[Rfam]
RNA sequence: AAAUAAAUAACGGGGAGCUGAGCGAGAUUCGGCUGAGAACAGACUGUAUGGUUUGGACCCAUUACCUGAUUUGGAUAAUGCCAACGUAGGGAUCAUAGUCGUGUUUUAA
Numbered sequence: 001a002a003a004u005a006a007a008u009a010a011c012g013g014g015g016a017g018c019u020g021a022g023c024g025a026g027a028u029u030c031g032g033c034u035g036a037g038a039a040c041a042g043a044c045u046g047u048a049u050g051g052u053u054u055g056g057a058c059c060c061a062u063u064a065c066c067u068g069a070u071u072u073g074g075a076u077a078a079u080g081c082c083a084a085c086g087u088a089g090g091g092a093u094c095a096u097a098g099u100c101g102u103g104u105u106u107u108a109a
Stems, first nucleotide, its partner, number of pairs: 007096002010093001012060003017033005040055005065090004071084004
Source information: Shown here is a 109-nucleotide sequence from Lachnospiraceae bacterium NE2001, a member of the family "TPP riboswitch aptamer (THI element)". Gene Ontology term of the family: thiamine pyrophosphate binding. Lineage of the source: Bacteria > Bacillati > Bacillota > Lachnospirales > Lachnospiraceae. The family's consensus secondary structure is taken from published work.